[Rfam]
RNA sequence: CCUCUACUUUAACAUGGAGGCACUUGCUGUGACUUCAUAAAAAAAUAAGUGCUUCCAUGUUUUAGUGCGG
Number, nucleotide and partner (000 for none) at each position: 001c070002c069003u000004c000005u067006a066007c065008u064009u000010u000011a061012a060013c059014a058015u057016g056017g055018a054019g053020g052021c051022a050023c049024u048025u047026g046027c000028u044029g000030u000031g000032a000033c000034u000035u000036c000037a000038u000039a000040a000041a000042a000043a000044a028045a000046u026047a025048a024049g023050u022051g021052c020053u019054u018055c017056c016057a015058u014059g013060u012061u011062u000063u000064a008065g007066u006067g005068c000069g002070g001

Rfam assigns this 70-nucleotide RNA from Bos taurus to the family "mir-302 microRNA precursor family".
The source organism's lineage runs through Eukaryota, Craniata, Mammalia, Eutheria and Bos.
Its Rfam clan is "mir-290 clan".
The literature on the family includes a 2004 paper in Dev Biol by Suh et al., "Human embryonic stem cells express a unique set of microRNAs".